[Rfam]
RNA sequence: UUCAGAAGCAUUGCACCCAGAGUCUGGUUCCCAGACAUUGUACCUGGAGCUUUGUUUUGAUUAAAUCACAAU
Numbered sequence: 001u002u003c004a005g006a007a008g009c010a011u012u013g014c015a016c017c018c019a020g021a022g023u024c025u026g027g028u029u030c031c032c033a034g035a036c037a038u039u040g041u042a043c044c045u046g047g048a049g050c051u052u053u054g055u056u057u058u059g060a061u062u063a064a065a066u067c068a069c070a071a072u
Stems, first nucleotide, its partner, number of pairs: 005053005017047004022036005
RNA: U1A polyadenylation inhibition element (PIE)